RNA sequence: GGGUGGUUAGCUCAGUUGGUAGAGCGUCUCGUUUACACCGAGAAUGUCGGGGGUUCGAGCCCCUCACCACCCA
Numbered sequence: 001g002g003g004u005g006g007u008u009a010g011c012u013c014a015g016u017u018g019g020u021a022g023a024g025c026g027u028c029u030c031g032u033u034u035a036c037a038c039c040g041a042g043a044a045u046g047u048c049g050g051g052g053g054u055u056c057g058a059g060c061c062c063c064u065c066a067c068c069a070c071c072c073a
Base pairs, nucleotide, nucleotide: 001072002071003070004069005068006067007066010025011024012023013022027043028042029041030040031039049065050064051063052062053061

Shown here is a 73-nucleotide RNA from Jannaschia rubra, a member of the family "tRNA".